[Rfam]
RNA sequence: CGGCCGUUCCGCACGGAACGCGCGCGAGUCUCAUCUGGUAAAGCGAAUGAUUAGAGGCCUUGGGGCCGAAACGACCUCAACCUAUUCUCAAACUUUAAAUGGGUGAGAUCUCUGGCUUUCUUGAAUUAUGAAGCCACGAGCAUCUCGGAUCAGAGUGACCUGGCCGUCGAUCGAGGGAGGUUGGGCCGCGUCGCGUUGCGGCCUCGCACUCCCGGGGCGUCUCGUUCUCAACGCGAGAAGAGGCGCACCCAGAGCGUACACGUUGGGACCCGAAAGAUGGUGAACUAUGCCUGGUCAGGACGAAGUCAGGGGAAACCCUGAUGGAGGUCCGUAGCGAUUCUGACGUGCAAAUCGAUCGUCGGAACUGGGUAUAGGGGCGAAAGACUAAUCGAACCAUCUAGUAGCUGGUUCCCUCCGAAGUUUCCAGAUAGCUGCAAGAUAGGCACUCGGCGUUCCACACGGAACGCUCGCGAGUCUCAUCUGGUAAAGUGAAUGAUUAGAGGCCUUGGGGCCGAAACGACCUCAACCUAUUCUCAAACUUUAAAUGGUUGAGAUCUCUAUCUUUCUUGAAUUAUGAAGUCACAAGCAUCUCGGAUCAG
Numbered sequence: 001c002g003g004c005c006g007u008u009c010c011g012c013a014c015g016g017a018a019c020g021c022g023c024g025c026g027a028g029u030c031u032c033a034u035c036u037g038g039u040a041a042a043g044c045g046a047a048u049g050a051u052u053a054g055a056g057g058c059c060u061u062g063g064g065g066c067c068g069a070a071a072c073g074a075c076c077u078c079a080a081c082c083u084a085u086u087c088u089c090a091a092a093c094u095u096u097a098a099a100u101g102g103g104u105g106a107g108a109u110c111u112c113u114g115g116c117u118u119u120c121u122u123g124a125a126u127u128a129u130g131a132a133g134c135c136a137c138g139a140g141c142a143u144c145u146c147g148g149a150u151c152a153g154a155g156u157g158a159c160c161u162g163g164c165c166g167u168c169g170a171u172c173g174a175g176g177g178a179g180g181u182u183g184g185g186c187c188g189c190g191u192c193g194c195g196u197u198g199c200g201g202c203c204u205c206g207c208a209c210u211c212c213c214g215g216g217g218c219g220u221c222u223c224g225u226u227c228u229c230a231a232c233g234c235g236a237g238a239a240g241a242g243g244c245g246c247a248c249c250c251a252g253a254g255c256g257u258a259c260a261c262g263u264u265g266g267g268a269c270c271c272g273a274a275a276g277a278u279g280g281u282g283a284a285c286u287a288u289g290c291c292u293g294g295u296c297a298g299g300a301c302g303a304a305g306u307c308a309g310g311g312g313a314a315a316c317c318c319u320g321a322u323g324g325a326g327g328u329c330c331g332u333a334g335c336g337a338u339u340c341u342g343a344c345g346u347g348c349a350a351a352u353c354g355a356u357c358g359u360c361g362g363a364a365c366u367g368g369g370u371a372u373a374g375g376g377g378c379g380a381a382a383g384a385c386u387a388a389u390c391g392a393a394c395c396a397u398c399u400a401g402u403a404g405c406u407g408g409u410u411c412c413c414u415c416c417g418a419a420g421u422u423u424c425c426a427g428a429u430a431g432c433u434g435c436a437a438g439a440u441a442g443g444c445a446c447u448c449g450g451c452g453u454u455c456c457a458c459a460c461g462g463a464a465c466g467c468u469c470g471c472g473a474g475u476c477u478c479a480u481c482u483g484g485u486a487a488a489g490u491g492a493a494u495g496a497u498u499a500g501a502g503g504c505c506u507u508g509g510g511g512c513c514g515a516a517a518c519g520a521c522c523u524c525a526a527c528c529u530a531u532u533c534u535c536a537a538a539c540u541u542u543a544a545a546u547g548g549u550u551g552a553g554a555u556c557u558c559u560a561u562c563u564u565u566c567u568u569g570a571a572u573u574a575u576g577a578a579g580u581c582a583c584a585a586g587c588a589u590c591u592c593g594g595a596u597c598a599g
Base pairs, nucleotide, nucleotide: 029108030107031106032105033104034103035102036101041096042094043093048090049089050088053085055083056082057081060080061079062078063077064076065075067073111584113582114581115580116579117578118577

Eukaryotic large subunit ribosomal RNA: a 599-nucleotide part of an RNA from Camponotus floridanus. A search with the family's covariance model found it, with a score of 2863 bits. Taxonomically the source falls in Camponotus (Eukaryota, Eumetazoa, Eumetabola, Endopterygota).